The family of this 68-nucleotide RNA from Dipodomys ordii is "Small nucleolar RNA SNORD109A". The family's RNA type in Rfam is C/D-box small nucleolar RNA. Pairs were carried over by alignment from the consensus structure, which was predicted with WAR. NCBI's taxonomy places the organism under Eukaryota, Teleostomi, Tetrapoda, Rodentia, Dipodomys. Rfam's curators write: Humans have two copies of the SNORD109 gene, SNORD109A and SNORD109B.
[Rfam]
RNA sequence: GGAUCGAUGUUGAGCACAAGGGUCUGAGGAUGGCCGAAGGACUCAAUGCAGACAUUAAGCAGAGAACU
Numbered sequence: 001g002g003a004u005c006g007a008u009g010u011u012g013a014g015c016a017c018a019a020g021g022g023u024c025u026g027a028g029g030a031u032g033g034c035c036g037a038a039g040g041a042c043u044c045a046a047u048g049c050a051g052a053c054a055u056u057a058a059g060c061a062g063a064g065a066a067c068u
Stems, first nucleotide, its partner, number of pairs: 001068002004065002